Shown here is an 87-nucleotide RNA sequence from Aquisalibacillus elongatus, a member of the family "c-di-GMP-I riboswitch aptamer". Its family is annotated with cyclic-di-GMP binding in the Gene Ontology. Taxonomically the source falls in Aquisalibacillus (Bacteria, Bacillati, Bacillota, Caryophanales). The base pairs follow the family's consensus structure, which is taken from published work.

RNA sequence: UCUCGACAAAGGCAAAACUGGUGAAAGCCAGUGACGCAAAGCUAUAGGGGCUUCUGUGCACGUGCACAAUGCCAGCCAGCUACCGAA
Numbered sequence: 001u002c003u004c005g006a007c008a009a010a011g012g013c014a015a016a017a018c019u020g021g022u023g024a025a026a027g028c029c030a031g032u033g034a035c036g037c038a039a040a041g042c043u044a045u046a047g048g049g050g051c052u053u054c055u056g057u058g059c060a061c062g063u064g065c066a067c068a069a070u071g072c073c074a075g076c077c078a079g080c081u082a083c084c085g086a087a
Stems, first nucleotide, its partner, number of pairs: 012037002017032006040081004047077002049073003056067004
Dot-bracket structure: ...........((...((((((....))))))...))..((((...(((((....((((....))))...)))..))))))......